Notes: The record is a 75-nucleotide sequence from Azorhizobium oxalatiphilum, which matches "Makes More Granules Regulator RNA (mmgR)" in Rfam. A reference for the family is Torres-Quesada et al. (2014), "Genome-wide profiling of Hfq-binding RNAs uncovers extensive post-transcriptional rewiring of major stress response and symbiotic regulons in Sinorhizobium meliloti", RNA Biol. Pairs were carried over by alignment from the consensus structure. By type it is a small RNA. SuhB later renamed mmgR (makes more granules regulator) was a putative non-coding RNA found multiple times in the Agrobacterium tumefaciens genome and related alpha-proteobacteria. Other non-coding RNAs uncovered in the same analysis include: speF, ybhL, metA, and serC.Several studies inSinorhizobium meliloti showed that suhB element is indeed a non-coding RNA:firstly it was detected on Northern blot and called Sm8RNA, secondly in an RNAseq study referred to as SmelC689.The mutant phenotype's (strain lacking the small RNA) cytoplasm contains higher content of polyhydroxybutyrate (PBH)storage granules than wild type strain. The sRNA is required to limit the PBH intracellular accumulation when the nitrogen-fixing Sinorhizobium meliloti is under condition of surplus carbon in relation to nitrogen. It has been renamed to mmgR. Further study confirmed that mmgR fine-tunes the regulation of PBH storage.Northern blot confirmed the expression of the sRNA in other rhizobia species. MmgR homologues were found in most alpha-proteobacteria. A search with the family's covariance model found it, with a score of 76 bits.
RNA sequence: UGCCGCUGCCCUCCUUGGGCGUUUCCUCCCUAGACUUGGGCCGCUCUACGUGAGCGGCCCCUUUAUUUUAGGGCG
Numbered sequence: 001u002g003c004c005g006c007u008g009c010c011c012u013c014c015u016u017g018g019g020c021g022u023u024u025c026c027u028c029c030c031u032a033g034a035c036u037u038g039g040g041c042c043g044c045u046c047u048a049c050g051u052g053a054g055c056g057g058c059c060c061c062u063u064u065a066u067u068u069u070a071g072g073g074c075g
Stems, first nucleotide, its partner, number of pairs: 008020004038060009